[Rfam]
RNA sequence: ACGCAUCCGCCAAUCGGUUCAGCCGUGUCGCGGGAGGUUUUUUUCAACCAGCUAAUGUUCCCUGAAGGGGAACGGAGGUCAGCG
Numbered sequence: 001a002c003g004c005a006u007c008c009g010c011c012a013a014u015c016g017g018u019u020c021a022g023c024c025g026u027g028u029c030g031c032g033g034g035a036g037g038u039u040u041u042u043u044u045c046a047a048c049c050a051g052c053u054a055a056u057g058u059u060c061c062c063u064g065a066a067g068g069g070g071a072a073c074g075g076a077g078g079u080c081a082g083c084g
Base pairs, nucleotide, nucleotide: 002084003083004082006034007033008032009031010030015025016024017023018022036049037048038047039046051079052078053077057073058072059071060070061069062068063067
SucA RNA motif: an 84-nucleotide RNA sequence from Limnohabitans sp. JirII-31. It is annotated as a cis-regulatory element. The source organism's lineage runs through Bacteria, Pseudomonadati, Pseudomonadota, Comamonadaceae and Limnohabitans. A search with the family's covariance model found it, with a score of 82 bits. A reference for the family is Weinberg et al. (2007), "Identification of 22 candidate structured RNAs in bacteria using the CMfinder comparative genomics pipeline", Nucleic Acids Res.